[Rfam]
RNA: Ruegeria cis52 sRNA
Organism: Cribrihabitans marinus
RNA sequence: UCCUGAGCGCGUGCUUCAUCACGAUGUUUGGAAAGCUGACGCCCUUGAGCCGCGCGGUGCGGAUGUAUUGCGCGGUCAUCACCUCUGUCAUCGAGGCGCGCGUCAUCCGGGCGAUAUAGCCCAUGCCGUAGAGCGCGAUGGUCAGCACCGGCAGAAAGAAAUUCUCGAAGGUCGGGUUU
Numbered sequence: 001u002c003c004u005g006a007g008c009g010c011g012u013g014c015u016u017c018a019u020c021a022c023g024a025u026g027u028u029u030g031g032a033a034a035g036c037u038g039a040c041g042c043c044c045u046u047g048a049g050c051c052g053c054g055c056g057g058u059g060c061g062g063a064u065g066u067a068u069u070g071c072g073c074g075g076u077c078a079u080c081a082c083c084u085c086u087g088u089c090a091u092c093g094a095g096g097c098g099c100g101c102g103u104c105a106u107c108c109g110g111g112c113g114a115u116a117u118a119g120c121c122c123a124u125g126c127c128g129u130a131g132a133g134c135g136c137g138a139u140g141g142u143c144a145g146c147a148c149c150g151g152c153a154g155a156a157a158g159a160a161a162u163u164c165u166c167g168a169a170g171g172u173c174g175g176g177u178u179u
Stems, first nucleotide, its partner, number of pairs: 004141001006139001008137005014131002016128001020125002028123001030121002040111001042109001046105003051100004055075001057073006082096004145179001147177001148175005154165001156163002